Shown here is a 393-nucleotide RNA from Gracilibacillus boraciitolerans, a member of the family "Bacterial RNase P class B".
[Rfam]
RNA sequence: AAUGUGAAGUAAUCGCUGCACAUAUUCAUGUGUAGAGGAAAGUCCAUGCUCACACAAGCUGUGAUGCUUGUAGUGUUCGUGCUUGACGAAAUCAUAAGUCAAGGUAACCAUUAGGUUAACGGCAGGGAAAAUACCUAAGUCUUUUGAUAUGGUAUUACUACCUUGAAAGUGCCACAGUGACGUAGCUAAAUAGGAAACUAUUUAGGUGGAACGCGGUAAACCCCCCCUCGAGUGAGCAACCCAAAUAUUGGUAGGGGCAUCUUCUAUUAGGUAACAAAGAACCGAAUGAAGGACAAGUAAUGUGAUAAACUUACUUGUAGACAGAUGAUUACACCUUUGGUACGAGGCUGACCACCGUUUGCAGUACGAAAGAACAGAACAUGGCUUACGGAC
Number, nucleotide and partner (000 for none) at each position: 001a000002a000003u000004g393005u392006g000007a000008a000009g332010u331011a330012a329013u328014c327015g000016c035017u034018g033019c032020a031021c030022a000023u000024a000025u000026u000027c000028a000029u000030g021031u020032g019033u018034a017035g016036a000037g000038g000039a000040a387041a386042g385043u000044c384045c383046a382047u381048g380049c236050u235051c234052a233053c232054a071055c070056a069057a068058g067059c066060u000061g000062u000063g000064a000065u000066g059067c058068u057069u056070g055071u054072a000073g000074u000075g000076u000077u231078c230079g229080u000081g227082c103083u102084u101085g100086a099087c098088g000089a000090a000091a000092u000093c000094a000095u000096a000097a000098g087099u086100c085101a084102a083103g082104g120105u118106a117107a116108c115109c114110a000111u000112u000113a000114g109115g108116u107117u106118a105119a000120c104121g226122g225123c000124a163125g162126g161127g000128a000129a000130a000131a000132u154133a153134c152135c151136u000137a000138a000139g148140u147141c146142u000143u000144u000145u000146g141147a140148u139149a000150u000151g135152g134153u133154a132155u000156u000157a000158c000159u000160a000161c126162c125163u124164u000165g000166a000167a000168a000169g221170u220171g217172c216173c215174a000175c000176a000177g000178u000179g000180a000181c000182g000183u000184a000185g000186c205187u204188a203189a202190a201191u200192a199193g198194g000195a000196a000197a000198c193199u192200a191201u190202u189203u188204a187205g186206g000207u000208g000209g000210a000211a000212c000213g000214c000215g173216g172217u171218a000219a000220a170221c169222c000223c000224c000225c122226c121227c081228u000229c079230g078231a077232g053233u052234g051235a050236g049237c000238a000239a000240c256241c255242c254243a000244a000245a000246u000247a000248u000249u000250g000251g000252u000253a000254g242255g241256g240257g000258c000259a000260u292261c291262u290263u289264c288265u000266a000267u000268u000269a000270g000271g000272u000273a000274a000275c000276a000277a000278a000279g000280a000281a000282c000283c000284g000285a000286a000287u000288g264289a263290a262291g261292g260293a318294c317295a316296a315297g314298u313299a312300a311301u000302g000303u000304g000305a000306u000307a000308a000309a000310c000311u300312u299313a298314c297315u296316u295317g294318u293319a000320g000321a000322c000323a000324g000325a000326u000327g014328a013329u012330u011331a010332c009333a000334c000335c372336u371337u370338u369339g000340g367341u366342a365343c364344g000345a000346g000347g000348c000349u000350g000351a000352c000353c000354a000355c000356c000357g000358u000359u000360u000361g000362c000363a000364g343365u342366a341367c340368g000369a338370a337371a336372g335373a000374a000375c000376a000377g000378a000379a000380c048381a047382u046383g045384g044385c042386u041387u040388a000389c000390g000391g000392a005393c004
About this RNA:
A search with the family's covariance model found it, with a score of 306 bits. Ribonuclease P (RNase P) is a ubiquitous endoribonuclease, found in archaea, bacteria and eukarya as well as chloroplasts and mitochondria. Its best characterised activity is the generation of mature 5'-ends of tRNAs by cleaving the 5'-leader elements of precursor-tRNAs. Cellular RNase Ps are ribonucleoproteins.